S10-Clostridia ribosomal protein leader: a 76-nucleotide RNA sequence from Firmicutes bacterium CAG:238. Taxonomically the source falls in Bacillota (Bacteria, Bacillati). On this family, see Eckert and Weinberg, BMC Microbiol 2020: "Discovery of 20 novel ribosomal leader candidates in bacteria and archaea". The family's consensus secondary structure is taken from published work. It is annotated as a cis-regulatory leader.
RNA sequence: UUAAGGCGAUGAAACGGGAAGUUGCUGAGCUAUCAGGUAAUUUCCGUGGAGAAUUGUCCUCACUUGAUGGGGGCGA
Number, nucleotide and partner (000 for none) at each position: 001u000002u000003a000004a000005g000006g000007c000008g000009a000010u000011g000012a000013a000014a047015c046016g045017g000018g044019a043020a042021g041022u000023u000024g000025c036026u035027g034028a033029g000030c000031u000032a000033u028034c027035a026036g025037g000038u000039a000040a000041u021042u020043u019044c018045c016046g015047u014048g000049g000050a000051g000052a000053a000054u000055u075056g074057u073058c072059c071060u070061c069062a068063c000064u000065u000066g000067a000068u062069g061070g060071g059072g058073g057074c056075g055076a000
A search with the family's covariance model found it, with a score of 44 bits.